RNA sequence: GGCUGCGUAGUUCAACUGGAUAGAAUAUCAGAUUUCGGCUCUGAGGGUUGGGGGUUCGAACCCCUCCGCAGUCA
Numbered sequence: 001g002g003c004u005g006c007g008u009a010g011u012u013c014a015a016c017u018g019g020a021u022a023g024a025a026u027a028u029c030a031g032a033u034u035u036c037g038g039c040u041c042u043g044a045g046g047g048u049u050g051g052g053g054g055u056u057c058g059a060a061c062c063c064c065u066c067c068g069c070a071g072u073c074a
Stems, first nucleotide, its partner, number of pairs: 001073007010026004028044005050066005